[Rfam]
RNA sequence: GGUCAUGAGUACCAGCGCCAAGCCCCGGCUGGCUGGUCGGCAACCCUCCUCCGCGGUGGGGUGCUCCGGGUGACGACCUGGCCACGCACCUCGGUGCGGCAAGUGCGGAUU
Numbered sequence: 001g002g003u004c005a006u007g008a009g010u011a012c013c014a015g016c017g018c019c020a021a022g023c024c025c026c027g028g029c030u031g032g033c034u035g036g037u038c039g040g041c042a043a044c045c046c047u048c049c050u051c052c053g054c055g056g057u058g059g060g061g062u063g064c065u066c067c068g069g070g071u072g073a074c075g076a077c078c079u080g081g082c083c084a085c086g087c088a089c090c091u092c093g094g095u096g097c098g099g100c101a102a103g104u105g106c107g108g109a110u111u
Base pairs, nucleotide, nucleotide: 001078002077003076004075009038011037012036013035014034015033016032021030022029039065040064041063044061045060046059048056049055081100082099083098086097087096088095089094